Rfam assigns this 76-nucleotide RNA sequence from Eleutherodactylus coqui to the family "mir-192/215 microRNA precursor family".
Rfam's curators write: This family represents the human microRNA (miRNA) precursors mir-192 and mir-215. Animal miRNAs are transcribed as ~70nt precursors and subsequently processed by the Dicer enzyme to give a ~22nt product.
Its family is annotated with miRNA-mediated post-transcriptional gene silencing and RISC complex in the Gene Ontology.
The organism belongs to Eleutherodactylus, within Eukaryota.
The base pairs follow the family's consensus structure, which was predicted with PFOLD.
The literature on the family includes a 2003 paper in RNA by Lagos-Quintana et al., "New microRNAs from mouse and human".
RNA sequence: CCAGAGCGAUGACCUAUGAAUUGACAGCCAUUGGAGUUACGUGGGUGUCUGUCAUUUCUGUAGGCCAAAAUUCUGA
Numbered sequence: 001c002c003a004g005a006g007c008g009a010u011g012a013c014c015u016a017u018g019a020a021u022u023g024a025c026a027g028c029c030a031u032u033g034g035a036g037u038u039a040c041g042u043g044g045g046u047g048u049c050u051g052u053c054a055u056u057u058c059u060g061u062a063g064g065c066c067a068a069a070a071u072u073c074u075g076a
Stems, first nucleotide, its partner, number of pairs: 002075005010067002013064004018058003022054006029047003
Dot-bracket structure: .(((((...((.((((.(((.((((((.(((.............))).)))))).)))..)))).))...))))).